[Rfam]
RNA sequence: UUAAUCCAAAGGUACAACUAGGGAAACCUAGUGUCACAAAGCUAUCGGGGCUAAAGGGUGUAUCCCCACGCCAGCCAGCUGCCCUU
Numbered sequence: 001u002u003a004a005u006c007c008a009a010a011g012g013u014a015c016a017a018c019u020a021g022g023g024a025a026a027c028c029u030a031g032u033g034u035c036a037c038a039a040a041g042c043u044a045u046c047g048g049g050g051c052u053a054a055a056g057g058g059u060g061u062a063u064c065c066c067c068a069c070g071c072c073a074g075c076c077a078g079c080u081g082c083c084c085u086u
Stems, first nucleotide, its partner, number of pairs: 012037002017032006040080004047076002049072003056066003